Shown here is a 180-nucleotide sequence from Bacillus sp. B1-b2, a member of the family "Lysine riboswitch aptamer".

RNA sequence: UGGUGGGGUAGAGGCGCGAUAUUUAACAGUCUUUAGUGGAGCUGGAGGAGCAAUGAUACUAGAGAGAAGGAAAUGUCGCCGAAGUGUGUGGGAUUCUCCAUCUUACAUGCUGGGUCUGUAGUUAAGAACUGCAGGACUGUCUCGAUAAACGAUUGUUUAUUGAGUUGUGCUAUCUCAUUU
Numbered sequence: 001u002g003g004u005g006g007g008g009u010a011g012a013g014g015c016g017c018g019a020u021a022u023u024u025a026a027c028a029g030u031c032u033u034u035a036g037u038g039g040a041g042c043u044g045g046a047g048g049a050g051c052a053a054u055g056a057u058a059c060u061a062g063a064g065a066g067a068a069g070g071a072a073a074u075g076u077c078g079c080c081g082a083a084g085u086g087u088g089u090g091g092g093a094u095u096c097u098c099c100a101u102c103u104u105a106c107a108u109g110c111u112g113g114g115u116c117u118g119u120a121g122u123u124a125a126g127a128a129c130u131g132c133a134g135g136a137c138u139g140u141c142u143c144g145a146u147a148a149a150c151g152a153u154u155g156u157u158u159a160u161u162g163a164g165u166u167g168u169g170c171u172a173u174c175u176c177a178u179u180u
Stems, first nucleotide, its partner, number of pairs: 006175006016079009031064008083111012112138002115135008141164008
Rfam 15.1 lists 3,224 matches to the family in 1,923 species. About the family: Riboswitches are metabolite binding domains within certain messenger RNAs that serve as precision sensors for their corresponding targets.